[Rfam]
RNA sequence: ACAAAAAAAACCCUGCCUGGAUAUCCAAGCAGGGUCCUUCUAUCCCUUGAAGUUAAUCAAGGUUAAGAAGGCAAAGGGAGAGGAGAAACCGGAGGAAGAACUUAUGGGGAAACGUAAGUCUUCUCCGCGG
Numbered sequence: 001a002c003a004a005a006a007a008a009a010a011c012c013c014u015g016c017c018u019g020g021a022u023a024u025c026c027a028a029g030c031a032g033g034g035u036c037c038u039u040c041u042a043u044c045c046c047u048u049g050a051a052g053u054u055a056a057u058c059a060a061g062g063u064u065a066a067g068a069a070g071g072c073a074a075a076g077g078g079a080g081a082g083g084a085g086a087a088a089c090c091g092g093a094g095g096a097a098g099a100a101c102u103u104a105u106g107g108g109g110a111a112a113c114g115u116a117a118g119u120c121u122u123c124u125c126c127g128c129g130g
Base pairs, nucleotide, nucleotide: 011034012033013032014031015030016029018027019026035078036077037076038075039074045062046061047060048059049058050057090127091126092125093124095123096122097121098120100119101118102117103116104115